[Rfam]
Group II catalytic intron D1-D4-3: a 169-nucleotide RNA sequence from Halobacillus sp. BBL2006.
The pairing is the family consensus, mapped onto this sequence.
The family has 406 seed sequences and 4,274 matches in Rfam 15.1.
RNA sequence: UCCAGGGCGACCUGGAAUCUGAAGGAAGCCGGAGGCAAACUUCCGCCCCGAGGAACACGAAUCUCAUAGAAGGCUGUUUAUCUGGGAUGAGCCUGCCUAACAAGGUGAAGUCCCGACGACCAAAGAGAUAGGCAGUAAAUGAGGCGGGGAUGGAAGGGAAGUUUAUGUC
Number, nucleotide and partner (000 for none) at each position: 001u016002c015003c014004a013005g012006g011007g000008c000009g000010a000011c006012c005013u004014g003015g002016a001017a000018u000019c000020u000021g000022a000023a000024g000025g000026a000027a000028g169029c000030c167031g166032g000033a000034g000035g162036c161037a000038a000039a000040c156041u155042u154043c153044c152045g151046c149047c148048c147049c146050g145051a000052g000053g000054a000055a000056c000057a000058c000059g000060a000061a000062u144063c143064u142065c141066a140067u139068a000069g000070a000071a000072g000073g136074c135075u134076g000077u132078u131079u130080a129081u128082c127083u126084g000085g113086g112087a111088u110089g000090a000091g106092c105093c104094u103095g000096c000097c000098u000099a000100a000101c000102a000103a094104g093105g092106u091107g000108a000109a000110g088111u087112c086113c085114c000115g000116a000117c000118g000119a000120c000121c000122a000123a000124a000125g000126a083127g082128a081129u080130a079131g078132g077133c000134a075135g074136u073137a000138a000139a067140u066141g065142a064143g063144g062145c050146g049147g048148g047149g046150a000151u045152g044153g043154a042155a041156g040157g000158g000159a000160a000161g036162u035163u000164u000165a000166u031167g030168u000169c028